[Rfam]
Shown here is an 80-nucleotide RNA sequence from Dufourea novaeangliae, a member of the family "mir-11 microRNA precursor family". Its Rfam clan is "mir-6 clan".

RNA sequence: GUGCCCUGAUGGAGCUCUGGCUGUGACUUGUGUGUUACAAUAAUUAAAAUCACAUCACAGGCAGAGUUCUAGUUAGGUGA
Numbered sequence: 001g002u003g004c005c006c007u008g009a010u011g012g013a014g015c016u017c018u019g020g021c022u023g024u025g026a027c028u029u030g031u032g033u034g035u036u037a038c039a040a041u042a043a044u045u046a047a048a049a050u051c052a053c054a055u056c057a058c059a060g061g062c063a064g065a066g067u068u069c070u071a072g073u074u075a076g077g078u079g080a
Stems, first nucleotide, its partner, number of pairs: 004077002010071008021060006030053003
NCBI's taxonomy places the organism under Eukaryota, Opisthokonta, Altocrustacea, Aculeata, Dufourea. The match comes from Rfam's covariance-model search (66 bits).